[Rfam]
RNA sequence: GCAUAACGCCUCUAGGGUUCCGGCUUUCCCAAGCGUCAGGUCCGAGAGAGGCUCUCCCGCCUCGCGAGCAGCGCGGCGGAGCCACGGCGGGAUAAAAGCCCGGGAGAC
Numbered sequence: 001g002c003a004u005a006a007c008g009c010c011u012c013u014a015g016g017g018u019u020c021c022g023g024c025u026u027u028c029c030c031a032a033g034c035g036u037c038a039g040g041u042c043c044g045a046g047a048g049a050g051g052c053u054c055u056c057c058c059g060c061c062u063c064g065c066g067a068g069c070a071g072c073g074c075g076g077c078g079g080a081g082c083c084a085c086g087g088c089g090g091g092a093u094a095a096a097a098g099c100c101c102g103g104g105a106g107a108c
Stems, first nucleotide, its partner, number of pairs: 008052005015043002020040002022037001023034004054081004060075001083103001085106001089101003

A member of the RNA family "Guanidine-I riboswitch aptamer" from Hyphomicrobium sp. MC1, 108 nucleotides long. Pairs were carried over by alignment from the consensus structure. The literature on the family includes a 2004 paper in Proc Natl Acad Sci U S A by Barrick et al., "New RNA motifs suggest an expanded scope for riboswitches in bacterial genetic control".